[Rfam]
Nucleotides: 177
Base pairs, nucleotide, nucleotide: 001177002176003175004174005173006172007171009169010168011167012166013165014164015163017161018160019159021157022156023155024154025153026152027151028150030148031147032146033145035143036142038140039139041137042136043135044134045133046132047131048130051127052126054124055123057120058119063114064113065112070107071106072105073104074103075102076101077100078099079098
Number, partner (000 for none) and nucleotide at each position: 001177a002176a003175c004174u005173a006172u007171a008000c009169u010168a011167u012166u013165g014164a015163u016000g017161a018160a019159u020000a021157g022156a023155u024154u025153c026152a027151c028150c029000c030148g031147u032146g033145a034000g035143a036142u037000a038140a039139c040000g041137u042136g043135g044134u045133u046132g047131u048130u049000c050000c051127a052126u053000c054124u055123a056000a057120g058119a059000u060000g061000a062000g063114g064113a065112u066000g067000u068000u069000a070107c071106a072105u073104c074103u075102u076101a077100u078099u079098a080000a081000u082000u083000u084000c085000g086000u087000g088000u089000g090000a091000u092000g093000g094000c095000u096000g097000g098079u099078a100077a101076u102075a103074g104073g105072a106071u107070g108000c109000c110000a111000u112065g113064u114063c115000c116000u117000c118000g119058u120057c121000c122000a123055u124054a125000g126052g127051u128000g129000a130048a131047a132046c133045a134044a135043c136042c137041a138000c139039g140038u141000c142036a143035u144000c145033u146032c147031g148030c149000g150028g151027g152026u153025g154024a155023a156022u157021c158000c159019a160018u161017u162000c163015a164014u165013c166012g167011a168010u169009a170000g171007u172006g173005u174004g175003g176002u177001u
The family of this 177-nucleotide sequence from Oryza meridionalis is "MIR807 microRNA precursor family". Gene Ontology terms of the family: RISC complex and miRNA-mediated post-transcriptional gene silencing. It scores 150 bits against the family's covariance model. The family's consensus secondary structure was predicted with WAR.